[Rfam]
The family of this 66-nucleotide RNA from Poecilia formosa is "Small nucleolar RNA SNORD75". For this family Rfam cites "Purified box C/D snoRNPs are able to reproduce site-specific 2'-O-methylation of target RNA in vitro" (Galardi et al., Mol Cell Biol, 2002). Its family is annotated with RNA processing and nucleolus in the Gene Ontology. It is annotated as a C/D-box small nucleolar RNA.
RNA sequence: GGUCGAUGAUUAAGUUAUAAGAGUAGUGGACAGAAGUGAUUUCUGAGAAGUUUUAACAAUGAGGCC
Numbered sequence: 001g002g003u004c005g006a007u008g009a010u011u012a013a014g015u016u017a018u019a020a021g022a023g024u025a026g027u028g029g030a031c032a033g034a035a036g037u038g039a040u041u042u043c044u045g046a047g048a049a050g051u052u053u054u055a056a057c058a059a060u061g062a063g064g065c066c
Base pairs, nucleotide, nucleotide: 001066002065003064004063